[Rfam]
RNA sequence: AUUAGCCUUUGGGGCAAGGUGAGAGGGAGUAGAUAUCCUUCAAUUCCUUACCGGCGGUAAAGCCCGCGAGCCGUAUGGUUGAUCUGGUGUGAUUCCGGAGCCGACAGUAUAGUCUGGAAGGGAAAAGGCUUGU
Numbered sequence: 001a002u003u004a005g006c007c008u009u010u011g012g013g014g015c016a017a018g019g020u021g022a023g024a025g026g027g028a029g030u031a032g033a034u035a036u037c038c039u040u041c042a043a044u045u046c047c048u049u050a051c052c053g054g055c056g057g058u059a060a061a062g063c064c065c066g067c068g069a070g071c072c073g074u075a076u077g078g079u080u081g082a083u084c085u086g087g088u089g090u091g092a093u094u095c096c097g098g099a100g101c102c103g104a105c106a107g108u109a110u111a112g113u114c115u116g117g118a119a120g121g122g123a124a125a126a127g128g129c130u131u132g133u
Stems, first nucleotide, its partner, number of pairs: 004130007017048003050113002052103002054067004062101002070079003083099005105116003
Shown here is a 133-nucleotide RNA from Propionispora sp. 2/2-37, a member of the family "FMN riboswitch aptamer (RFN element)". Rfam links the family to the GO term FMN binding. Taxonomically the source falls in Propionispora (Bacteria, Bacillota, Negativicutes, Sporomusaceae).